[Rfam]
RNA sequence: GAGGAGAAAGCCGAAAAUCCCGAAAAGAGUAGGCG
Dot-bracket structure: ..(((....[[[.....)))...........]]].
The family of this 35-nucleotide sequence is "DUF805b RNA". The base pairs follow the family's consensus structure, which is taken from published work. Rfam's curators put it in the seed alignment. It is annotated as a cis-regulatory element.